[Rfam]
Shown here is a 97-nucleotide RNA sequence from Citrobacter sp. JGM124, a member of the family "Tryptophan operon leader". Its family is annotated with transcriptional attenuation by ribosome and tryptophan biosynthetic process in the Gene Ontology. A search with the family's covariance model found it, with a score of 45 bits. A reference for the family is Kolter and Yanofsky (1982), "Attenuation in amino acid biosynthetic operons", Annu Rev Genet. Rfam describes the family as follows. At least 6 amino acid operons are known to be regulated by attenuation. In each a leader sequence of 150-200 bp is found upstream of the first gene in the operon. Taxonomically the source falls in Citrobacter (Bacteria, Pseudomonadati, Gammaproteobacteria, Enterobacteriaceae).
RNA sequence: AACCGUGGUUGGCGUACUUCCUAAAACAGGACGGCGCGCGCAUUCAUGCUAUUUGUCAGCACAGAUAUCCAGCCCGCCACCAUGCGGGCUUUUUUAU
Numbered sequence: 001a002a003c004c005g006u007g008g009u010u011g012g013c014g015u016a017c018u019u020c021c022u023a024a025a026a027c028a029g030g031a032c033g034g035c036g037c038g039c040g041c042a043u044u045c046a047u048g049c050u051a052u053u054u055g056u057c058a059g060c061a062c063a064g065a066u067a068u069c070c071a072g073c074c075c076g077c078c079a080c081c082a083u084g085c086g087g088g089c090u091u092u093u094u095u096a097u
Base pairs, nucleotide, nucleotide: 010042011041014037015036017034018033021030022029071090072089073088074087075086076085077084